Rfam assigns this 134-nucleotide RNA sequence from Bos taurus to the family "Small nucleolar RNA SNORA41".
ACA41 is a member of the H/ACA class of snoRNA that guide the sites of modification of uridines to pseudouridines.
The family's RNA type in Rfam is H/ACA-box small nucleolar RNA.
Its family is annotated with RNA processing and nucleolus in the Gene Ontology.
A reference for the family is Huttenhofer et al. (2001), "RNomics: an experimental approach that identifies 201 candidates for novel, small, non-messenger RNAs in mouse", EMBO J.
The organism belongs to Bos, within Eukaryota.

[Rfam]
RNA sequence: UUCCACAGCUACUGGUCUGCAGCUGUUCUUAAAGGUAGCAGCUGUGGCAUUCCACUGUGGGAAAGAAACUGUCACACAACUCAACACCUCUUUCUCAGCACAACAGAAAGUGGGCAUGUGUGUGACAAACACAA
Numbered sequence: 001u002u003c004c005a006c007a008g009c010u011a012c013u014g015g016u017c018u019g020c021a022g023c024u025g026u027u028c029u030u031a032a033a034g035g036u037a038g039c040a041g042c043u044g045u046g047g048c049a050u051u052c053c054a055c056u057g058u059g060g061g062a063a064a065g066a067a068a069c070u071g072u073c074a075c076a077c078a079a080c081u082c083a084a085c086a087c088c089u090c091u092u093u094c095u096c097a098g099c100a101c102a103a104c105a106g107a108a109a110g111u112g113g114g115c116a117u118g119u120g121u122g123u124g125a126c127a128a129a130c131a132c133a134a
Stems, first nucleotide, its partner, number of pairs: 003060004017047009074123005087114003090110006
Dot-bracket structure: ..((((..........(((((((((.............))))))))).........)))).............(((((........(((((((((.........)))))).)))....)))))...........
The sequence is in the family's curated seed alignment.